[Rfam]
RNA sequence: GAAACCUCAUCUUGCUCAAGCGCCAUCCGGGCGCCAGAGCGGUGUUUUUAACUAAACACAGGCACUUCGCCUGGAUGAGGAGAGAGG
Numbered sequence: 001g002a003a004a005c006c007u008c009a010u011c012u013u014g015c016u017c018a019a020g021c022g023c024c025a026u027c028c029g030g031g032c033g034c035c036a037g038a039g040c041g042g043u044g045u046u047u048u049u050a051a052c053u054a055a056a057c058a059c060a061g062g063c064a065c066u067u068c069g070c071c072u073g074g075a076u077g078a079g080g081a082g083a084g085a086g087g
Stems, first nucleotide, its partner, number of pairs: 005080008015039003020034005042059005060072004
Dot-bracket structure: ....((((((((..(((..(((((.....)))))..)))..(((((........)))))((((.....)))))))))))).......
Shown here is an 87-nucleotide sequence, a member of the family "RAGATH-10 RNA". For this family Rfam cites "New classes of self-cleaving ribozymes revealed by comparative genomics analysis" (Weinberg et al., Nat Chem Biol, 2015). It is one of the family's seed sequences.